Overview: The record is a 124-nucleotide sequence from Acidovorax sp. RAC01, which matches "Glycine riboswitch aptamer" in Rfam. A search with the family's covariance model found it, with a score of 60 bits. This family represents the bacterial glycine riboswitch. Gene Ontology term of the family: glycine biosynthetic process.
[Rfam]
RNA sequence: CGUUCCCUUGCUGGAGAGAGAUGGCACCGCCCACGCGCGGCCCCCAUCCACCGAAGGAGCAAACCGCACGGCCAGCCAGGGCGCUGCGGUGAAUCUCUCAGGUAAAGCGGACAGCAGGGCAAAU
Numbered sequence: 001c002g003u004u005c006c007c008u009u010g011c012u013g014g015a016g017a018g019a020g021a022u023g024g025c026a027c028c029g030c031c032c033a034c035g036c037g038c039g040g041c042c043c044c045c046a047u048c049c050a051c052c053g054a055a056g057g058a059g060c061a062a063a064c065c066g067c068a069c070g071g072c073c074a075g076c077c078a079g080g081g082c083g084c085u086g087c088g089g090u091g092a093a094u095c096u097c098u099c100a101g102g103u104a105a106a107g108c109g110g111a112c113a114g115c116a117g118g119g120c121a122a123a124u
Base pairs, nucleotide, nucleotide: 006119007118008117009116010115011114012113013112020048021047022046023045050103051102052101053099054098057097058096059095063090064089065088066087067086068085